[Rfam]
The record is an 80-nucleotide RNA from Streptosporangium subroseum, which matches "ZMP/ZTP riboswitch aptamer (pfl RNA motif)" in Rfam. The base pairs follow the family's consensus structure, which is taken from published work. The source organism's lineage runs through Bacteria, Actinomycetota, Streptosporangiales, Streptosporangiaceae and Streptosporangium.

RNA sequence: CGUCUAAACCGUGACUGGCGCGUUGGGUGGAAGGACCACCGGGGAGCGAGUGGCGGAGGCCGUGCGCCUGGGUCUUCGCC
Numbered sequence: 001c002g003u004c005u006a007a008a009c010c011g012u013g014a015c016u017g018g019c020g021c022g023u024u025g026g027g028u029g030g031a032a033g034g035a036c037c038a039c040c041g042g043g044g045a046g047c048g049a050g051u052g053g054c055g056g057a058g059g060c061c062g063u064g065c066g067c068c069u070g071g072g073u074c075u076u077c078g079c080c
Stems, first nucleotide, its partner, number of pairs: 004050002010048003015043002017068005027039004057075005